[Rfam]
RNA: mir-971 microRNA precursor family
RNA sequence: AUCUCGGCUCACUCUAAGUAUGAACGCCAAGCAUAUUGUAAAGAGUUUGGUGUUCUACCUUACAGUGAACUGAGUA
Numbered sequence: 001a002u003c004u005c006g007g008c009u010c011a012c013u014c015u016a017a018g019u020a021u022g023a024a025c026g027c028c029a030a031g032c033a034u035a036u037u038g039u040a041a042a043g044a045g046u047u048u049g050g051u052g053u054u055c056u057a058c059c060u061u062a063c064a065g066u067g068a069a070c071u072g073a074g075u076a
Stems, first nucleotide, its partner, number of pairs: 006071002009068005015062003025052008